[Rfam]
A member of the RNA family "permuted transfer-messenger RNA" from Candidatus Sneabacter namystus, 220 nucleotides long.
The organism belongs to Candidatus Sneabacter, within Bacteria.
The family's RNA type in Rfam is non-coding RNA gene.
The sequence is in the family's curated seed alignment.
RNA sequence: GGCGAUAAACUGUACUUAUAAUAGCAAACGUGGACCCGGGGGCAGUACCCGGCACCUCCACCAAAAAAGGCACAUGCAAAUGGGGGUGACAUAGUAUCGACACUUUGACGAAAGGGGUACAUUUCUCUCGGGGACAGAUCACCCGAUUUGUAGUUUCUGCAAUAAAAAGAUCUAUUCCUUAAACGGAAACAACAACAAAAGGUGGGCUCUAGCUGCUUAA
Numbered sequence: 001g002g003c004g005a006u007a008a009a010c011u012g013u014a015c016u017u018a019u020a021a022u023a024g025c026a027a028a029c030g031u032g033g034a035c036c037c038g039g040g041g042g043c044a045g046u047a048c049c050c051g052g053c054a055c056c057u058c059c060a061c062c063a064a065a066a067a068a069g070g071c072a073c074a075u076g077c078a079a080a081u082g083g084g085g086g087u088g089a090c091a092u093a094g095u096a097u098c099g100a101c102a103c104u105u106u107g108a109c110g111a112a113a114g115g116g117g118u119a120c121a122u123u124u125c126u127c128u129c130g131g132g133g134a135c136a137g138a139u140c141a142c143c144c145g146a147u148u149u150g151u152a153g154u155u156u157c158u159g160c161a162a163u164a165a166a167a168a169g170a171u172c173u174a175u176u177c178c179u180u181a182a183a184c185g186g187a188a189a190c191a192a193c194a195a196c197a198a199a200a201g202g203u204g205g206g207c208u209c210u211a212g213c214u215g216c217u218u219a220a
Stems, first nucleotide, its partner, number of pairs: 001128002004125002014118004026106003030103003036052005053088007129145004